A member of the RNA family "Archaeal large subunit ribosomal RNA" from Methanococcoides burtonii, 357 nucleotides of a longer RNA. It is one of the family's seed sequences. Pairs were carried over by alignment from the consensus structure, which is taken from published work.
RNA sequence: CGGAAUAAUUUGGCUAAGGGAAUUCGGCAAAUUGGCUCCGUAACUUCGGGAGAAGGAGUGCCUGCCGUGAAGACGGCAGGUCGCAGUGACCAGGGAACUCUAACUGUCUAAUAUCAACAUAGGAGAUCGCAAACCCGUAAGGGCUAGUACGAUCUCUGAAUCCUGCUCAGUGCAGGUACCUGAAACUUCGGUUCAACGGAAUGAAGGGCCUGUAAACAGCGGGGGUAACUAUGACCCUCUUAAGGUAGCGUAGUACCUUGUCGCUUAAUUGGCGACUUGCAUGAAUGGAUCAAUGAGAGUUCUACUGUCCCUAGCCAGAGUCCGGUGAAGCUUACAUUCUAGUGCAGAGUCUAGAGA
Numbered sequence: 001c002g003g004a005a006u007a008a009u010u011u012g013g014c015u016a017a018g019g020g021a022a023u024u025c026g027g028c029a030a031a032u033u034g035g036c037u038c039c040g041u042a043a044c045u046u047c048g049g050g051a052g053a054a055g056g057a058g059u060g061c062c063u064g065c066c067g068u069g070a071a072g073a074c075g076g077c078a079g080g081u082c083g084c085a086g087u088g089a090c091c092a093g094g095g096a097a098c099u100c101u102a103a104c105u106g107u108c109u110a111a112u113a114u115c116a117a118c119a120u121a122g123g124a125g126a127u128c129g130c131a132a133a134c135c136c137g138u139a140a141g142g143g144c145u146a147g148u149a150c151g152a153u154c155u156c157u158g159a160a161u162c163c164u165g166c167u168c169a170g171u172g173c174a175g176g177u178a179c180c181u182g183a184a185a186c187u188u189c190g191g192u193u194c195a196a197c198g199g200a201a202u203g204a205a206g207g208g209c210c211u212g213u214a215a216a217c218a219g220c221g222g223g224g225g226u227a228a229c230u231a232u233g234a235c236c237c238u239c240u241u242a243a244g245g246u247a248g249c250g251u252a253g254u255a256c257c258u259u260g261u262c263g264c265u266u267a268a269u270u271g272g273c274g275a276c277u278u279g280c281a282u283g284a285a286u287g288g289a290u291c292a293a294u295g296a297g298a299g300u301u302c303u304a305c306u307g308u309c310c311c312u313a314g315c316c317a318g319a320g321u322c323c324g325g326u327g328a329a330g331c332u333u334a335c336a337u338u339c340u341a342g343u344g345c346a347g348a349g350u351c352u353a354g355a356g357a
Stems, first nucleotide, its partner, number of pairs: 001324004009319008018310003035059005044049001060081009082086001094303007101295002105119003122157008130147001134143003160290004165220003170217002172213005179208003187200004221239006240244001260276006338355005